[Rfam]
Rfam assigns this 133-nucleotide RNA sequence from Macaca mulatta to the family "Small nucleolar RNA SNORA68". Taxonomically the source falls in Macaca (Eukaryota, Bilateria, Craniata, Euteleostomi). Gene Ontology terms of the family: nucleolus and RNA processing. By type it is an H/ACA-box small nucleolar RNA. Rfam's curators put it in the seed alignment. The literature on the family includes a 1997 paper in Genes Dev by Ganot et al., "The family of box ACA small nucleolar RNAs is defined by an evolutionarily conserved secondary structure and ubiquitous sequence elements essential for RNA accumulation".
RNA sequence: CUCUCACCUAAAGCCAAGAAUCAUUGUUUCUUGUAGCGGUGGUUUAAACAGAGUUAUAAACAGCAAGUGAAUCUCGUCGCCUUUGUGGGGCUGUGGCCAUGCCCCUCAAAGUGAAUUUAGAGGCUCUACAGCC
Number, nucleotide and partner (000 for none) at each position: 001c000002u059003c000004u000005c000006a055007c000008c053009u052010a000011a000012a000013g000014c000015c000016a000017a000018g000019a044020a043021u042022c041023a040024u039025u038026g037027u036028u035029u000030c000031u000032u000033g000034u000035a028036g027037c026038g025039g024040u023041g022042g021043u020044u019045u000046a000047a000048a000049c000050a000051g000052a009053g008054u000055u006056a000057u000058a000059a002060a000061c000062a000063g000064c000065a000066a000067g000068u000069g126070a125071a000072u123073c122074u121075c120076g000077u000078c000079g000080c000081c111082u110083u109084u108085g107086u000087g105088g104089g103090g102091c101092u000093g000094u000095g000096g000097c000098c000099a000100u000101g091102c090103c089104c088105c087106u000107c085108a084109a083110a082111g081112u000113g000114a000115a000116u000117u000118u000119a000120g075121a074122g073123g072124c000125u070126c069127u000128a000129c000130a000131g000132c000133c000